Shown here is a 133-nucleotide RNA from Erinaceus europaeus, a member of the family "Small nucleolar RNA U109". The source organism's lineage runs through Eukaryota, Metazoa, Bilateria, Erinaceinae and Erinaceus. The base pairs follow the family's consensus structure, which was predicted with WAR. On this family, see Gu et al., Nucleic Acids Res 2005: "A novel experimental approach for systematic identification of box H/ACA snoRNAs from eukaryotes". It is one of the family's seed sequences.

RNA sequence: UUGCAUGUGGAAACGUCUUCUGCUCAUUCCUUUGGGCGCAGGAUAUAUCCUUACAUGCUACAUUAAGAAAGGAGUUCACAGGGCUGCCAACCUUACAGUAGAGGUUGAGUAGUAGUAUAUUUCUCCUACAAAA
Numbered sequence: 001u002u003g004c005a006u007g008u009g010g011a012a013a014c015g016u017c018u019u020c021u022g023c024u025c026a027u028u029c030c031u032u033u034g035g036g037c038g039c040a041g042g043a044u045a046u047a048u049c050c051u052u053a054c055a056u057g058c059u060a061c062a063u064u065a066a067g068a069a070a071g072g073a074g075u076u077c078a079c080a081g082g083g084c085u086g087c088c089a090a091c092c093u094u095a096c097a098g099u100a101g102a103g104g105u106u107g108a109g110u111a112g113u114a115g116u117a118u119a120u121u122u123c124u125c126c127u128a129c130a131a132a133a
Stems, first nucleotide, its partner, number of pairs: 003058006016042003020038001023035001071126004083113002087109001088107007
Dot-bracket structure: ..((((((.......(((.(..(...........)..).)))..........))))))............((((........((..((((((((......))))))).)..)).........)))).......